Rfam assigns this 192-nucleotide sequence from Ricinus communis to the family "RT-15 RNA". The base pairs follow the family's consensus structure, which is taken from published work.
RNA sequence: GUGCGCCCGCUUCAUGGAGGUCAAGGCCGCCAUGACUGAGCGCCAAUCUAAUCUGGUCGUGCCGCUGGCUCACGAGGCCAACGCCAUGCGCAUCACGGAAACCGACCGCCGGUGUGCGGCGCGGUCCGGCGCAGUUUCCCCGAUGAUCGGCGACAGCCUUCGCCGGGGCGACGUAGAAAGCACGAUGGGUAC
Numbered sequence: 001g002u003g004c005g006c007c008c009g010c011u012u013c014a015u016g017g018a019g020g021u022c023a024a025g026g027c028c029g030c031c032a033u034g035a036c037u038g039a040g041c042g043c044c045a046a047u048c049u050a051a052u053c054u055g056g057u058c059g060u061g062c063c064g065c066u067g068g069c070u071c072a073c074g075a076g077g078c079c080a081a082c083g084c085c086a087u088g089c090g091c092a093u094c095a096c097g098g099a100a101a102c103c104g105a106c107c108g109c110c111g112g113u114g115u116g117c118g119g120c121g122c123g124g125u126c127c128g129g130c131g132c133a134g135u136u137u138c139c140c141c142g143a144u145g146a147u148c149g150g151c152g153a154c155a156g157c158c159u160u161c162g163c164c165g166g167g168g169c170g171a172c173g174u175a176g177a178a179a180g181c182a183c184g185a186u187g188g189g190u191a192c
Base pairs, nucleotide, nucleotide: 004042005041006040012035013034014033015032016031017030019028020027021026057185058184059183060182061181062180063083064082066080067079068078069077070076087133088132089131090130091129096128097127098126099125102124103123106119107118108117109116135171136170138168139167140166141165142164144162145161146160149158150157151156